The record is a 50-nucleotide RNA, which matches "Streptococcus sRNA SpF59 (ldcC RNA)" in Rfam. The family's RNA type in Rfam is small RNA. A reference for the family is Mann et al. (2012), "Control of virulence by small RNAs in Streptococcus pneumoniae", PLoS Pathog.

RNA sequence: CGACCGCCCUUCGGGGCCAAGGCCACACGGACAGCCGGGUCGAAUGCCGA
Numbered sequence: 001c002g003a004c005c006g007c008c009c010u011u012c013g014g015g016g017c018c019a020a021g022g023c024c025a026c027a028c029g030g031a032c033a034g035c036c037g038g039g040u041c042g043a044a045u046g047c048c049g050a
Stems, first nucleotide, its partner, number of pairs: 001042005006017004